[Rfam]
RNA sequence: AUAAUAUAAGGCGAUGGAGUUCGCCAGGCAAGAAAACAUAACAAGAUUGCCUAACCGCCAAGUGCUAAUGACUCCUGUUGACUU
Numbered sequence: 001a002u003a004a005u006a007u008a009a010g011g012c013g014a015u016g017g018a019g020u021u022c023g024c025c026a027g028g029c030a031a032g033a034a035a036a037c038a039u040a041a042c043a044a045g046a047u048u049g050c051c052u053a054a055c056c057g058c059c060a061a062g063u064g065c066u067a068a069u070g071a072c073u074c075c076u077g078u079u080g081a082c083u084u
Stems, first nucleotide, its partner, number of pairs: 010025004016075006057065002

Rfam assigns this 84-nucleotide RNA from Dethiosulfatibacter aminovorans to the family "Fluoride riboswitch aptamer (crcB RNA motif)".
Rfam links the family to the GO terms positive regulation of gene expression and response to fluoride.
The family's consensus secondary structure is taken from published work.
It scores 48 bits against the family's covariance model.